A member of the RNA family "Alphaproteobacteria transfer-messenger RNA" from Gluconacetobacter diazotrophicus, 339 nucleotides long. On this family, see Williams and Bartel, RNA 1996: "Phylogenetic analysis of tmRNA secondary structure". From the family's description: Bacterial tmRNA, also known as 10Sa RNA or SsrA, is named for its dual tRNA and mRNA-like properties. Its role is to liberate the mRNA from a stalled ribosome. To accomplish this part of the tmRNA is used as a reading frame that ends in a translation stop signal. The broken mRNA is replaced in the ribosome by the tmRNA and translation of the tmRNA leads to addition of a proteolysis tag to the incomplete protein enabling recognition by a protease. Recently a number of permuted tmRNA genes have been found encoded in two parts. tmRNAs have been identified in eubacteria and some chloroplasts but are absent from archaeal and eukaryote nuclear genomes.
[Rfam]
RNA sequence: GUGCUUGCCAAAAGCGGCCGCUGACCCUAUAUCCCGUGAUGCCGGAGGGGCUUGCUCCUUGGCUAUGGCGAUAAACGGCACGUGGAAUAAGUGUAGUGGACCCGGGGGCAGUACCCGGCGUCUCCACCAGACACUCCCCGCGACGCCCCUUCGGGGCAGGGGAGCAUGGGGACGAAACAGGCUCGACACGCAUGGUAAAGACCUGCCUUUUGCCCGGCAUUGUACCGCCGUUAUCGGGCUAACUCACAAGUGCCAACGAUAACUCUGAGGUGCUCGCUGUCGCUGCAUAAGUGACAAGCGCGGUUCGGGAGGGCACCGGGCAACAGAAGCCCUCCCACU
Dot-bracket structure: ........................................(((((.............)))))...(((((.....((((.((........(((.(((...(((((.......)))))(((((((..........................................)))))))............))))))........)).))))..)))))((((.[.[..[[)))).....]].].]...........................................................[[[[...((((((.]]]]...........))))))....